[Rfam]
Nucleotides: 190
Base pairs, nucleotide, nucleotide: 002188004186005185006184007183008182009181010180011179012177013176014175015174017173018172033157034156035155036154037153038152039151040149041148062131063130064129066127067126068125075120076119077118079116080115081114087108088107092104093103
Number, partner (000 for none) and nucleotide at each position: 001000g002188g003000a004186u005185a006184u007183c008182u009181g010180u011179g012177a013176u014175g015174u016000a017173c018172g019000a020000g021000u022000u023000a024000c025000u026000c027000c028000u029000u030000u031000a032000a033157g034156u035155g036154u037153u038152g039151a040149c041148c042000g043000a044000a045000c046000a047000u048000a049000u050000u051000a052000u053000a054000u055000u056000g057000a058000u059000a060000u061000u062131g063130g064129g065000a066127u067126c068125c069000a070000a071000c072000g073000a074000g075120u076119u077118u078000c079116a080115u081114c082000a083000a084000a085000a086000g087108a088107c089000a090000g091000g092104c093103c094000u095000u096000u097000u098000c099000a100000c101000u102000u103093g104092g105000u106000a107088g108087u109000u110000u111000g112000c113000u114081g115080a116079u117000a118077a119076a120075a121000c122000a123000g124000a125068g126067g127066a128000g129064c130063c131062c132000a133000c134000c135000u136000g137000c138000a139000u140000a141000u142000a143000u144000c145000g146000c147000g148041g149040g150000a151039u152038c153037a154036a155035u156034a157033c158000g159000c160000c161000a162000g163000a164000g165000u166000a167000a168000c169000c170000a171000a172018c173017g174015g175014c176013a177012u178000c179011u180010a181009c182008g183007g184006a185005u186004a187000c188002u189000a190000c
Rfam assigns this 190-nucleotide RNA from Vagococcus humatus to the family "6S / SsrS RNA". The match comes from Rfam's covariance-model search (56 bits). Rfam classes the family as a non-coding RNA gene. The family's consensus secondary structure is taken from published work.